RNA: Glycine riboswitch aptamer
RNA sequence: UUCGCCAGCGCGGGAGAGCCGCUCGAACAUCCGUCGAGCGGCACCGAAGGAGCAAGCUUCCCCGCCAAUCUCUCAGGUCCAGUACCGCGCAGGCGAG
Numbered sequence: 001u002u003c004g005c006c007a008g009c010g011c012g013g014g015a016g017a018g019c020c021g022c023u024c025g026a027a028c029a030u031c032c033g034u035c036g037a038g039c040g041g042c043a044c045c046g047a048a049g050g051a052g053c054a055a056g057c058u059u060c061c062c063c064g065c066c067a068a069u070c071u072c073u074c075a076g077g078u079c080c081a082g083u084a085c086c087g088c089g090c091a092g093g094c095g096a097g
Stems, first nucleotide, its partner, number of pairs: 006092001008090006019041007043078003046074002050072003056065002